[Rfam]
Small nucleolar RNA Z103: a 97-nucleotide RNA sequence from Trifolium subterraneum. The family has 12 seed sequences and 2,844 matches in Rfam 15.1. Rfam links the family to the GO terms nucleolus and RNA processing.
RNA sequence: AUGGAUAUGAUGAUUAUUUCCCCACACGAUCGAAACUGAAGAUUCUAUGCGAAUUUUGUUUCUCUUCGGAGAAUUCAAGCCAAAUAAUCUGAUCCAU
Numbered sequence: 001a002u003g004g005a006u007a008u009g010a011u012g013a014u015u016a017u018u019u020c021c022c023c024a025c026a027c028g029a030u031c032g033a034a035a036c037u038g039a040a041g042a043u044u045c046u047a048u049g050c051g052a053a054u055u056u057u058g059u060u061u062c063u064c065u066u067c068g069g070a071g072a073a074u075u076c077a078a079g080c081c082a083a084a085u086a087a088u089c090u091g092a093u094c095c096a097u
Base pairs, nucleotide, nucleotide: 001097002096003095004094005093